[Rfam]
RNA: msiK RNA
RNA sequence: UUCUGGCACCUCUCACUACGGAUCGUCCGGCACGUACCUGCCGGUGGAGGGAUUUUCA
Numbered sequence: 001u002u003c004u005g006g007c008a009c010c011u012c013u014c015a016c017u018a019c020g021g022a023u024c025g026u027c028c029g030g031c032a033c034g035u036a037c038c039u040g041c042c043g044g045u046g047g048a049g050g051g052a053u054u055u056u057c058a
Stems, first nucleotide, its partner, number of pairs: 009050004014046002027044006